The family of this 142-nucleotide sequence from Fervidobacterium nodosum is "FMN riboswitch aptamer (RFN element)". Taxonomically the source falls in Fervidobacterium nodosum (Bacteria, Thermotogota, Thermotogae, Fervidobacteriaceae). Rfam's curators put it in the seed alignment.

[Rfam]
RNA sequence: GGGUACUCUCGGGGCAGGGUGAAAUUCCCGACCGGCGGUGAAAGCCCGCGAGCCUUCCGAAAGUUUUUAAGUUUUUUGUAGGAAGGUUGAUCCGGUGGAAUUCCGGAGCCGACGGUGAAAGUCCGGAUGGGAGAGAGUACCA
Numbered sequence: 001g002g003g004u005a006c007u008c009u010c011g012g013g014g015c016a017g018g019g020u021g022a023a024a025u026u027c028c029c030g031a032c033c034g035g036c037g038g039u040g041a042a043a044g045c046c047c048g049c050g051a052g053c054c055u056u057c058c059g060a061a062a063g064u065u066u067u068u069a070a071g072u073u074u075u076u077u078g079u080a081g082g083a084a085g086g087u088u089g090a091u092c093c094g095g096u097g098g099a100a101u102u103c104c105g106g107a108g109c110c111g112a113c114g115g116u117g118a119a120a121g122u123c124c125g126g127a128u129g130g131g132a133g134a135g136a137g138u139a140c141c142a
Stems, first nucleotide, its partner, number of pairs: 003140008017029003031122002033111002035049004044109002052087007091107005113125003